RNA sequence: CCAGAACUACGGUCCGGGCACAUACCCGGCAAUGCCAGGACCGUUGAGGGGCUCCAGCGCAAGUUGGAGCCCCUUUCUUUUU
Numbered sequence: 001c002c003a004g005a006a007c008u009a010c011g012g013u014c015c016g017g018g019c020a021c022a023u024a025c026c027c028g029g030c031a032a033u034g035c036c037a038g039g040a041c042c043g044u045u046g047a048g049g050g051g052c053u054c055c056a057g058c059g060c061a062a063g064u065u066g067g068a069g070c071c072c073c074u075u076u077c078u079u080u081u082u
Stems, first nucleotide, its partner, number of pairs: 010043006017036002048073008057064002